[Rfam]
RNA sequence: CCCGAGUACUCGGGAUGAUAUGUGGGAAUGCGUCAUUGACGUCCCCGAAUCGCAAG
Numbered sequence: 001c002c003c004g005a006g007u008a009c010u011c012g013g014g015a016u017g018a019u020a021u022g023u024g025g026g027a028a029u030g031c032g033u034c035a036u037u038g039a040c041g042u043c044c045c046c047g048a049a050u051c052g053c054a055a056g
Base pairs, nucleotide, nucleotide: 001014002013003012004011005010016052017051018050024046025045026044